[Rfam]
Small nucleolar RNA snoR53Y: a 79-nucleotide RNA from Coptis chinensis. Clan: snoR53 clan. NCBI's taxonomy places the organism under Eukaryota, Spermatophyta, Magnoliopsida, Mesangiospermae, Coptis. The family's consensus secondary structure was predicted with WAR. Rfam 15.1 lists 513 matches to the family in 230 species. Gene Ontology terms of the family: RNA processing and nucleolus. A search with the family's covariance model found it, with a score of 59 bits.
Nucleotides: 079
Base pairs, nucleotide, nucleotide: 001078002077003076004075005074
Number, partner (000 for none) and nucleotide at each position: 001078g002077u003076u004075c005074c006000c007000g008000g009000u010000g011000a012000u013000g014000u015000u016000a017000u018000a019000a020000u021000a022000a023000a024000c025000c026000a027000u028000g029000c030000u031000a032000a033000u034000a035000c036000a037000g038000a039000g040000a041000c042000u043000u044000g045000g046000g047000u048000c049000u050000u051000u052000g053000a054000u055000g056000a057000a058000c059000g060000u061000u062000u063000u064000a065000u066000u067000u068000g069000c070000u071000g072000a073000g074005g075004g076003a077002a078001c079000g